[Rfam]
transfer-messenger RNA: a 333-nucleotide RNA from Clostridium tepidiprofundi.
Rfam classes the family as a non-coding RNA gene.
Lineage of the source: Bacteria > Bacillati > Clostridia > Eubacteriales > Clostridium tepidiprofundi.
Clan: tRNA clan.
RNA sequence: AAUGGUUUCGACGGGGAUGUACUUCAUUUAGGAAGCGAGCCGAGGGAAUCCUAGUCCCGCGUUAAAAAACCAGGAAUUAAAUAUAAACGCAGACGAUAAUUUUGCAUUAGCAGCUUAAUAUAGCUGCUCGUUCUACCUAGGAGGCCCACGGCCUGGGAUAGGGCGUCGACUAGUGGGAAAACGAGCCUAACAAAGCUUUGAGUUAGGAACGGAAUUCAUGAAGCUACCGAAAUGAAAAUCCUGUCAGUGGGAGUUUCAUAGAGGGAAUUUUAAAACACUGAAUGCGCUCGGAGAUGCCUAGAUGGGGUUGUUUUCGGACAGGGGUUCGAUUCA
Numbered sequence: 001a002a003u004g005g006u007u008u009c010g011a012c013g014g015g016g017a018u019g020u021a022c023u024u025c026a027u028u029u030a031g032g033a034a035g036c037g038a039g040c041c042g043a044g045g046g047a048a049u050c051c052u053a054g055u056c057c058c059g060c061g062u063u064a065a066a067a068a069a070c071c072a073g074g075a076a077u078u079a080a081a082u083a084u085a086a087a088c089g090c091a092g093a094c095g096a097u098a099a100u101u102u103u104g105c106a107u108u109a110g111c112a113g114c115u116u117a118a119u120a121u122a123g124c125u126g127c128u129c130g131u132u133c134u135a136c137c138u139a140g141g142a143g144g145c146c147c148a149c150g151g152c153c154u155g156g157g158a159u160a161g162g163g164c165g166u167c168g169a170c171u172a173g174u175g176g177g178a179a180a181a182c183g184a185g186c187c188u189a190a191c192a193a194a195g196c197u198u199u200g201a202g203u204u205a206g207g208a209a210c211g212g213a214a215u216u217c218a219u220g221a222a223g224c225u226a227c228c229g230a231a232a233u234g235a236a237a238a239u240c241c242u243g244u245c246a247g248u249g250g251g252a253g254u255u256u257c258a259u260a261g262a263g264g265g266a267a268u269u270u271u272a273a274a275a276c277a278c279u280g281a282a283u284g285c286g287c288u289c290g291g292a293g294a295u296g297c298c299u300a301g302a303u304g305g306g307g308u309u310g311u312u313u314u315c316g317g318a319c320a321g322g323g324g325u326u327c328g329a330u331u332c333a
Stems, first nucleotide, its partner, number of pairs: 012316008023306010034295001036290005041061002044058002049075004054070001109128006129165006136157006145177005182211002186207005194225006227264002232259005239252003244281003247276002324332001